[Rfam]
RNA sequence: CUUCCCUAUGAUGGCAUUAACAGGAACCAUGCUAAUGCUGAUAAUGUUUUCAUGAAUGAUCCCUUCUUUCUUAGUUCCUGAGGGAAUA
Dot-bracket structure: .((((((.........................................................................))))))..
This 88-nucleotide RNA from Ziziphus jujuba belongs to the Rfam family "Small nucleolar RNA snoR53Y". The match comes from Rfam's covariance-model search (55 bits). The family's RNA type in Rfam is C/D-box small nucleolar RNA. The family is grouped with related families in Rfam's "snoR53 clan". Lineage of the source: Eukaryota > Tracheophyta > Mesangiospermae > Pentapetalae > Ziziphus jujuba.